[Rfam]
RNA sequence: UGGUUAUAAUUGAAUAAACCGUAGACAGUAGGAGCGAAAUAGUGCUUAAUGUAUUCCUACCGAGGUGAUACGAGAUUUUUUCUUGAUAACAACGAAUUUUAACGAUGUUAGAUAGAUACGUGCCCUCAUGUCGACUCGACCUGAGGGCUUUUACAUGUUUGU
Numbered sequence: 001u002g003g004u005u006a007u008a009a010u011u012g013a014a015u016a017a018a019c020c021g022u023a024g025a026c027a028g029u030a031g032g033a034g035c036g037a038a039a040u041a042g043u044g045c046u047u048a049a050u051g052u053a054u055u056c057c058u059a060c061c062g063a064g065g066u067g068a069u070a071c072g073a074g075a076u077u078u079u080u081u082c083u084u085g086a087u088a089a090c091a092a093c094g095a096a097u098u099u100u101a102a103c104g105a106u107g108u109u110a111g112a113u114a115g116a117u118a119c120g121u122g123c124c125c126u127c128a129u130g131u132c133g134a135c136u137c138g139a140c141c142u143g144a145g146g147g148c149u150u151u152u153a154c155a156u157g158u159u160u161g162u
Stems, first nucleotide, its partner, number of pairs: 028060006034045003122148007130140002

About this RNA: This 162-nucleotide RNA sequence from Terrilactibacillus tamarindi belongs to the Rfam family "Ribosomal protein L10 leader". From the family's description: This family is a putative r-protein leader autoregulatory structure found in B. subtilis and other low-GC Gram-positive bacteria. It is located in the 5' untranslated regions of mRNAs encoding ribosomal proteins L10 and L12 (rplJ-rplL).